[Rfam]
Description: A member of the RNA family "Small nucleolar RNA SNORA31" from Dissostichus mawsoni, 136 nucleotides long. For this family Rfam cites "RNomics: an experimental approach that identifies 201 candidates for novel, small, non-messenger RNAs in mouse" (Huttenhofer et al., EMBO J, 2001). The match comes from Rfam's covariance-model search (44 bits). The family's consensus secondary structure was predicted with RNAalifold. Taxonomically the source falls in Dissostichus (Eukaryota, Teleostomi, Euacanthomorphacea, Notothenioidei).
RNA sequence: CCGCAUCUUUGACAGCCUGGGCUCUCUGUUGUGAGAUACCCUGGGUUUUAAGUAUUUCAGAUGCUAAAUUAAAUGUCCCUGCGCUUUCUGCUCGUCUCUUUCCAUGGCGUCUCGGAUUGAAUCGGGGAGGAUAAAU
Numbered sequence: 001c002c003g004c005a006u007c008u009u010u011g012a013c014a015g016c017c018u019g020g021g022c023u024c025u026c027u028g029u030u031g032u033g034a035g036a037u038a039c040c041c042u043g044g045g046u047u048u049u050a051a052g053u054a055u056u057u058c059a060g061a062u063g064c065u066a067a068a069u070u071a072a073a074u075g076u077c078c079c080u081g082c083g084c085u086u087u088c089u090g091c092u093c094g095u096c097u098c099u100u101u102c103c104a105u106g107g108c109g110u111c112u113c114g115g116a117u118u119g120a121a122u123c124g125g126g127g128a129g130g131a132u133a134a135a136u
Stems, first nucleotide, its partner, number of pairs: 003064006009051002012049001014047004020039001023036003076128006084119001087116004093109004